[Rfam]
RNA sequence: CUAAUUUUGAUGUCGUAGAUACUGCAUCAGGAACUGAUUGGAUGAAAAUCAAUUACCAUCAGUUCCUAAUGCACUGCCUUCAGCAUCUAAUCA
Numbered sequence: 001c002u003a004a005u006u007u008u009g010a011u012g013u014c015g016u017a018g019a020u021a022c023u024g025c026a027u028c029a030g031g032a033a034c035u036g037a038u039u040g041g042a043u044g045a046a047a048a049u050c051a052a053u054u055a056c057c058a059u060c061a062g063u064u065c066c067u068a069a070u071g072c073a074c075u076g077c078c079u080u081c082a083g084c085a086u087c088u089a090a091u092c093a
Base pairs, nucleotide, nucleotide: 023073024072025071026070027069029067030066031065032064033063034062035061036060037059039058040057041056
Rfam assigns this 93-nucleotide RNA sequence from Eleutherodactylus coqui to the family "mir-217 microRNA precursor family". The base pairs follow the family's consensus structure, which was predicted with RNAalifold. The literature on the family includes a 2003 paper in Science by Lim et al., "Vertebrate microRNA genes". Lineage of the source: Eukaryota > Gnathostomata > Euteleostomi > Eleutherodactylidae > Eleutherodactylus.